[Rfam]
RNA: drz-agam-1 ribozyme
Organism: Golovinomyces cichoracearum
RNA sequence: GGUGCAUCAAAUCCUAUUCUGCACCUCCUCGUGGUGUCGCCUGGGAACCCUUUUUCUUCGGAGAAAGGAGCUAAGCAGAAAGG
Numbered sequence: 001g002g003u004g005c006a007u008c009a010a011a012u013c014c015u016a017u018u019c020u021g022c023a024c025c026u027c028c029u030c031g032u033g034g035u036g037u038c039g040c041c042u043g044g045g046a047a048c049c050c051u052u053u054u055u056c057u058u059c060g061g062a063g064a065a066a067g068g069a070g071c072u073a074a075g076c077a078g079a080a081a082g083g
Base pairs, nucleotide, nucleotide: 013083014082015081017080018079019078020077021076022075023035024034025033048068049067051065052064053063054062055061